[Rfam]
RNA sequence: AGAGGUUACAAGUUUGAGGCCAUAGCAGAAGUGCUCACAGCAUGGCCUUCUCAGAUUCCAACAGAUCUGCAAAUUCUGUU
Number, nucleotide and partner (000 for none) at each position: 001a000002g000003a000004g000005g000006u000007u000008a000009c000010a000011a000012g000013u000014u000015u000016g000017a048018g047019g046020c045021c044022a000023u000024a080025g079026c078027a077028g076029a075030a074031g043032u042033g041034c000035u000036c000037a000038c000039a000040g000041c033042a032043u031044g021045g020046c019047c018048u017049u000050c000051u000052c069053a068054g067055a066056u065057u064058c000059c000060a000061a000062c000063a000064g057065a056066u055067c054068u053069g052070c000071a000072a000073a000074u030075u029076c028077u027078g026079u025080u024
RNA: Mammalian CPEB3 ribozyme